Molybdenum/Tungsten riboswitch aptamer (Moco RNA motif): a 135-nucleotide sequence from Shewanella amazonensis. It is one of the family's seed sequences. The family's consensus secondary structure is taken from published work. Taxonomically the source falls in Shewanella amazonensis (Bacteria, Gammaproteobacteria, Alteromonadales, Shewanellaceae).

RNA sequence: UCAAUGACGGUUCUCCGAGCUCCUGCACCUAAGUCAAUGGAUAUGGUGUUUGAGCCGUGGCGCGGUGCCACCGGGGUGGGGUGCAGAAAUGGCUUCACCUCCCGAUACUUGGAAAGGUGAUCAUGUCUCAACUUC
Numbered sequence: 001u002c003a004a005u006g007a008c009g010g011u012u013c014u015c016c017g018a019g020c021u022c023c024u025g026c027a028c029c030u031a032a033g034u035c036a037a038u039g040g041a042u043a044u045g046g047u048g049u050u051u052g053a054g055c056c057g058u059g060g061c062g063c064g065g066u067g068c069c070a071c072c073g074g075g076g077u078g079g080g081g082u083g084c085a086g087a088a089a090u091g092g093c094u095u096c097a098c099c100u101c102c103c104g105a106u107a108c109u110u111g112g113a114a115a116g117g118u119g120a121u122c123a124u125g126u127c128u129c130a131a132c133u134u135c
Stems, first nucleotide, its partner, number of pairs: 004128001006126001012120002015117002019055004025049005033042003057071005074100008084091002101112002
Dot-bracket structure: ...(.(.....((.((..((((..(((((...(((....)))..)))))..)))).(((((.....)))))..((((((((..((....)).))))))))((........))...)).)).....).).......